[Rfam]
RNA sequence: UGCUUAUCGAGAAAGACUGAGGGAAGGGCCCUGUGAAGUCUUAGCAACCUGAGAUCAAGGUGCUAACUCCCAUUCCGGAAAAGCCGGAAAAAGAUGAGCG
Numbered sequence: 001u002g003c004u005u006a007u008c009g010a011g012a013a014a015g016a017c018u019g020a021g022g023g024a025a026g027g028g029c030c031c032u033g034u035g036a037a038g039u040c041u042u043a044g045c046a047a048c049c050u051g052a053g054a055u056c057a058a059g060g061u062g063c064u065a066a067c068u069c070c071c072a073u074u075c076c077g078g079a080a081a082a083g084c085c086g087g088a089a090a091a092a093g094a095u096g097a098g099c100g
Base pairs, nucleotide, nucleotide: 001100002099003098004097005096006095007094008093013042014041015040016039017038021031022030023029026071027070028069043064044063045062046061048060049059050057051056068092073089074088075087076086077085078084